Rfam assigns this 89-nucleotide sequence to the family "freshwater-2 RNA". The base pairs follow the family's consensus structure, which is taken from published work.
[Rfam]
RNA sequence: GACAACACUAAGGUUGUUGGACUUAUGCGGUACCCUCCGCGUAGCGACUAGAACUCGCAUUGGGCUCUUAAUAAGGAGAAAACAAAAUG
Numbered sequence: 001g002a003c004a005a006c007a008c009u010a011a012g013g014u015u016g017u018u019g020g021a022c023u024u025a026u027g028c029g030g031u032a033c034c035c036u037c038c039g040c041g042u043a044g045c046g047a048c049u050a051g052a053a054c055u056c057g058c059a060u061u062g063g064g065c066u067c068u069u070a071a072u073a074a075g076g077a078g079a080a081a082a083c084a085a086a087a088u089g
Stems, first nucleotide, its partner, number of pairs: 001018006024043007044058004